[Rfam]
The family of this 125-nucleotide RNA from Callorhinus ursinus is "Small nucleolar RNA SNORA28".
The family's RNA type in Rfam is H/ACA-box small nucleolar RNA.
A reference for the family is Huttenhofer et al. (2001), "RNomics: an experimental approach that identifies 201 candidates for novel, small, non-messenger RNAs in mouse", EMBO J.
The family is grouped with related families in Rfam's "SNORA28 clan".
ACA28 is a member of the H/ACA class of snoRNA that guide the sites of modification of uridines to pseudouridines.
RNA sequence: AAGCAACACUUUGUAGCACAUAAUCCAAGUGUGUCUGACGCAAUUUGGGCUUGCUAUGGCAAGAAAGUCUCACCUCUUCCAGCACUCUCCUCCAUGAGACCAACUGUUAUAUAGACUUAAACAGU
Number, nucleotide and partner (000 for none) at each position: 001a000002a000003g000004c000005a000006a000007c000008a000009c049010u048011u047012u042013g041014u040015a000016g000017c037018a036019c000020a034021u033022a032023a000024u000025c000026c000027a000028a000029g000030u000031g000032u022033g021034u020035c000036u018037g017038a000039c000040g014041c013042a012043a000044u000045u000046u000047g011048g010049g009050c000051u000052u000053g000054c000055u000056a000057u000058g000059g000060c000061a000062a000063g000064a000065a118066a117067g116068u115069c114070u113071c000072a000073c000074c000075u111076c000077u109078u000079c000080c106081a105082g104083c000084a000085c000086u099087c098088u097089c096090c000091u000092c000093c000094a000095u000096g089097a088098g087099a086100c000101c000102a000103a000104c082105u081106g080107u000108u000109a077110u000111a075112u000113a070114g069115a068116c067117u066118u065119a000120a000121a000122c000123a000124g000125u000